[Rfam]
RNA sequence: ACUUUCCAGUUCGUAGCCUGAUUUGCAAAGGCUAAUGGCUGGUGACUUUUUAGUCACCAGCCU
Numbered sequence: 001a002c003u004u005u006c007c008a009g010u011u012c013g014u015a016g017c018c019u020g021a022u023u024u025g026c027a028a029a030g031g032c033u034a035a036u037g038g039c040u041g042g043u044g045a046c047u048u049u050u051u052a053g054u055c056a057c058c059a060g061c062c063u
Stems, first nucleotide, its partner, number of pairs: 014034005037062010
The family of this 63-nucleotide sequence from Plesiomonas shigelloides is "Pseudomonas sRNA P26". From the family's description: This small RNA (sRNA) was computationally identified in the genome of the opportunistic pathogen Pseudomonas aeruginosa and its expression verified by northern blot analysis. P26 is conserved across many Gammaproteobacteria species and appears to be consistently located between the DNA directed RNA polymerase (beta subunit) and 50S ribosomal protein L7/L12 genes. On this family, see Livny et al., Nucleic Acids Res 2006: "Identification of 17 Pseudomonas aeruginosa sRNAs and prediction of sRNA-encoding genes in 10 diverse pathogens using the bioinformatic tool sRNAPredict2".